[Rfam]
RNA sequence: CAGUGCACUCAUCCAUAAAGUAGGAAACACUACACUGUGUAGAAUAGUUUAGUAGUGCUUUCUACUUUAUGGGUGACAGCACUGU
Numbered sequence: 001c002a003g004u005g006c007a008c009u010c011a012u013c014c015a016u017a018a019a020g021u022a023g024g025a026a027a028c029a030c031u032a033c034a035c036u037g038u039g040u041a042g043a044a045u046a047g048u049u050u051a052g053u054a055g056u057g058c059u060u061u062c063u064a065c066u067u068u069a070u071g072g073g074u075g076a077c078a079g080c081a082c083u084g085u
Stems, first nucleotide, its partner, number of pairs: 014071010026059001028057006
The record is an 85-nucleotide RNA from Takifugu flavidus, which matches "mir-142 microRNA precursor family" in Rfam. Rfam 15.1 lists 1,555 matches to the family in 631 species. A search with the family's covariance model found it, with a score of 73 bits. For this family Rfam cites "Small RNA expression and strain specificity in the rat" (Linsen et al., BMC Genomics, 2010). The base pairs follow the family's consensus structure, which was predicted with RNAalifold.